Background:
Shown here is a 120-nucleotide RNA from Calditerricola satsumensis, a member of the family "SAM riboswitch aptamer (S box leader)". The SAM riboswitch is found upstream of a number of genes which code for proteins involved in methionine or cysteine biosynthesis in Gram-positive bacteria. The organism belongs to Calditerricola, within Bacteria.

RNA sequence: UUCUUAUCCAGAGAGGUGGAGGGACUGGCCCGAUGAAACCUCGGCAACCGGCUUGCCGCCUCGGGCAAGCAGCGGUGCCAACUCCUGCGGAAACGCGCCGGCGUUUCCGAGAGAUGAGAA
Numbered sequence: 001u002u003c004u005u006a007u008c009c010a011g012a013g014a015g016g017u018g019g020a021g022g023g024a025c026u027g028g029c030c031c032g033a034u035g036a037a038a039c040c041u042c043g044g045c046a047a048c049c050g051g052c053u054u055g056c057c058g059c060c061u062c063g064g065g066c067a068a069g070c071a072g073c074g075g076u077g078c079c080a081a082c083u084c085c086u087g088c089g090g091a092a093a094c095g096c097g098c099c100g101g102c103g104u105u106u107c108c109g110a111g112a113g114a115u116g117a118g119a120a
Stems, first nucleotide, its partner, number of pairs: 001120008013042005021031003025087001027085002043079004048075002051070006083112001088109008